[Rfam]
RNA sequence: UUCCAAGGAGAUUCCUUCUCCAGGGAUAAAUCGUAUACCCCAGGAAUGUAGCUCCUUGGAGAAAUUUCUGGUACUGUUGAGAAUAUUUUAAUAGAUGAGCGAUGUGCCAUUUUUCCUCUCCUUAAAUUAUCAGUAUAC
Numbered sequence: 001u002u003c004c005a006a007g008g009a010g011a012u013u014c015c016u017u018c019u020c021c022a023g024g025g026a027u028a029a030a031u032c033g034u035a036u037a038c039c040c041c042a043g044g045a046a047u048g049u050a051g052c053u054c055c056u057u058g059g060a061g062a063a064a065u066u067u068c069u070g071g072u073a074c075u076g077u078u079g080a081g082a083a084u085a086u087u088u089u090a091a092u093a094g095a096u097g098a099g100c101g102a103u104g105u106g107c108c109a110u111u112u113u114u115c116c117u118c119u120c121c122u123u124a125a126a127u128u129a130u131c132a133g134u135a136u137a138c
Stems, first nucleotide, its partner, number of pairs: 002060006009053002019045003023041003027037001069132004075125001079121001081119001090111001092109001094107001

Rfam assigns this 138-nucleotide RNA sequence from Physeter macrocephalus to the family "Small nucleolar RNA SNORA67". Rfam classes the family as an H/ACA-box small nucleolar RNA. The family has 12 seed sequences and 580 matches in Rfam 15.1. Taxonomically the source falls in Physeter (Eukaryota, Craniata, Gnathostomata, Artiodactyla). About the family: U67 belongs to the H/ACA class of snoRNAs which are thought to guide the sites of modification of uridines to pseudouridines. Rfam links the family to the GO terms nucleolus and RNA processing.